[Rfam]
RNA: Small nucleolar RNA SNORD121A
RNA sequence: UAAGAGGAGGUAGUGAUGCUUACAAGCACAUAUCUGUAAUUUGAAUAUGUGGAAAAAAUCAUUCUGAAUCUCCUCAUU
Numbered sequence: 001u002a003a004g005a006g007g008a009g010g011u012a013g014u015g016a017u018g019c020u021u022a023c024a025a026g027c028a029c030a031u032a033u034c035u036g037u038a039a040u041u042u043g044a045a046u047a048u049g050u051g052g053a054a055a056a057a058a059u060c061a062u063u064c065u066g067a068a069u070c071u072c073c074u075c076a077u078u
Stems, first nucleotide, its partner, number of pairs: 002077001004075003008071004